[Rfam]
Annotation: This 350-nucleotide part of an RNA from an uncultured bacterium belongs to the Rfam family "Bacterial small subunit ribosomal RNA". Rfam's curators put it in the seed alignment. Clan: SSU clan. The base pairs follow the family's consensus structure, which is taken from published work.
RNA sequence: GGUUUAAAGGGUGCGUAGGCGGUUGUGUAAGUUAGUGGUCAAAUGUCAUGGCUCAACCUUGGCUUGCCAUUAAAACUGCACGACUCGAGUACAGACGAGGUAGGCGGAAUAAGUUAAGUAGCGGUGAAAUGCAUAGAUAUAACUUAGAAUUCCGAUAGCGAAGGCAGCUUACCAGACUGUAACUGACGCUGAUGCACGAGAGCAUGGGUAGCGAACAGGAUUAGAUACCCUGGUAGUCCAUGCCGUAAACGAUGCUCACUGGCUCUGUGCGACACAUUGUACGGGGUCAAGCGAAAGUAUUAAGUGAGCCACCUGGGGAGUACGUCGGCAACGAUGAAACUCAAAGGAAU
Numbered sequence: 001g002g003u004u005u006a007a008a009g010g011g012u013g014c015g016u017a018g019g020c021g022g023u024u025g026u027g028u029a030a031g032u033u034a035g036u037g038g039u040c041a042a043a044u045g046u047c048a049u050g051g052c053u054c055a056a057c058c059u060u061g062g063c064u065u066g067c068c069a070u071u072a073a074a075a076c077u078g079c080a081c082g083a084c085u086c087g088a089g090u091a092c093a094g095a096c097g098a099g100g101u102a103g104g105c106g107g108a109a110u111a112a113g114u115u116a117a118g119u120a121g122c123g124g125u126g127a128a129a130u131g132c133a134u135a136g137a138u139a140u141a142a143c144u145u146a147g148a149a150u151u152c153c154g155a156u157a158g159c160g161a162a163g164g165c166a167g168c169u170u171a172c173c174a175g176a177c178u179g180u181a182a183c184u185g186a187c188g189c190u191g192a193u194g195c196a197c198g199a200g201a202g203c204a205u206g207g208g209u210a211g212c213g214a215a216c217a218g219g220a221u222u223a224g225a226u227a228c229c230c231u232g233g234u235a236g237u238c239c240a241u242g243c244c245g246u247a248a249a250c251g252a253u254g255c256u257c258a259c260u261g262g263c264u265c266u267g268u269g270c271g272a273c274a275c276a277u278u279g280u281a282c283g284g285g286g287u288c289a290a291g292c293g294a295a296a297g298u299a300u301u302a303a304g305u306g307a308g309c310c311a312c313c314u315g316g317g318g319a320g321u322a323c324g325u326c327g328g329c330a331a332c333g334a335u336g337a338a339a340c341u342c343a344a345a346g347g348a349a350u
Base pairs, nucleotide, nucleotide: 001313002312003311009310011197012196013195014194016191018190019189020188022084023083024082025081026080027079028078030077031076032073033072034071035070036069037068038067040066045063046062047061048060050058051057088184089183090182091180092179093178094177096175099173100172101171102170103169104168105167106150110146111145112144113143114142115141116140121132122131123130158165159164202243203242204241205240206239207238211237212236216232217231218230219229254309255308256307257306258305259304262287263286264285265284266283267282268281269280270279271278272277291298292297315342316341317340324335325334326333327332